[Rfam]
RNA: Guanidine-I riboswitch aptamer
Organism: Piscinibacter sp. HJYY11
RNA sequence: GAAAUGGCUGGCUAGGGUUCCGGUCCGCGCGCUGUCUUGGGGGCACGUGCGGAUGUCUGGUCCGAGAGCUGGCGACCUCACUGAGGUUACACGGCGGGACAAAAGCCCGGGAGAG
Numbered sequence: 001g002a003a004a005u006g007g008c009u010g011g012c013u014a015g016g017g018u019u020c021c022g023g024u025c026c027g028c029g030c031g032c033u034g035u036c037u038u039g040g041g042g043g044c045a046c047g048u049g050c051g052g053a054u055g056u057c058u059g060g061u062c063c064g065a066g067a068g069c070u071g072g073c074g075a076c077c078u079c080a081c082u083g084a085g086g087u088u089a090c091a092c093g094g095c096g097g098g099a100c101a102a103a104a105g106c107c108c109g110g111g112a113g114a115g
Stems, first nucleotide, its partner, number of pairs: 007073006015063002020060002022057001023054009074088006090110001092113001096108003